RNA sequence: CAAAUGGCUCUUUUCAGAGCCACCUAAAUAAUGCAUUCACUGGAUU
Numbered sequence: 001c002a003a004a005u006g007g008c009u010c011u012u013u014u015c016a017g018a019g020c021c022a023c024c025u026a027a028a029u030a031a032u033g034c035a036u037u038c039a040c041u042g043g044a045u046u
Base pairs, nucleotide, nucleotide: 006021007020008019009018010017011016
The record is a 46-nucleotide RNA from Rhipicephalus microplus, which matches "Histone 3' UTR stem-loop" in Rfam. The family's RNA type in Rfam is cis-regulatory element. NCBI's taxonomy places the organism under Eukaryota, Bilateria, Ecdysozoa, Arachnida, Boophilus. Pairs were carried over by alignment from the consensus structure, which is taken from published work. Its family is annotated with mRNA 3'-end processing by stem-loop binding and cleavage in the Gene Ontology. A search with the family's covariance model found it, with a score of 34 bits.